[Rfam]
RNA sequence: AAUCUAAGUUGGUCUGCAAAGGUCGCCACAUCCUGUGGCAAAGCAGACAUGACCCGCUUCGUGCGGG
Dot-bracket structure: ...........((((((.......(((((.....)))))...))))))....(((((.....)))))
RNA: Bacillaceae-1 RNA